Description
Shown here is a 110-nucleotide RNA sequence from Metabacillus arenae, a member of the family "TPP riboswitch aptamer (THI element)". A reference for the family is Rodionov et al. (2002), "Comparative genomics of thiamin biosynthesis in procaryotes. New genes and regulatory mechanisms", J Biol Chem. Pairs were carried over by alignment from the consensus structure, which is taken from published work.
RNA sequence: AAUUCAUUGUAGGGGGGCCGGUAGUGCCGGCUGAGAUUGCGUCCGUUAGAUGCUGACCCUUAGAACCUGAUCUGGAUGGUGCCAGCGGAGGGAACAUAUACUGAAUUGUA
Numbered sequence: 001a002a003u004u005c006a007u008u009g010u011a012g013g014g015g016g017g018c019c020g021g022u023a024g025u026g027c028c029g030g031c032u033g034a035g036a037u038u039g040c041g042u043c044c045g046u047u048a049g050a051u052g053c054u055g056a057c058c059c060u061u062a063g064a065a066c067c068u069g070a071u072c073u074g075g076a077u078g079g080u081g082c083c084a085g086c087g088g089a090g091g092g093a094a095c096a097u098a099u100a101c102u103g104a105a106u107u108g109u110a
Base pairs, nucleotide, nucleotide: 008096009095010094011060012059013058014057016054017031018030019029020028021027039053040052041051042050066091067090068089072085073084074083075082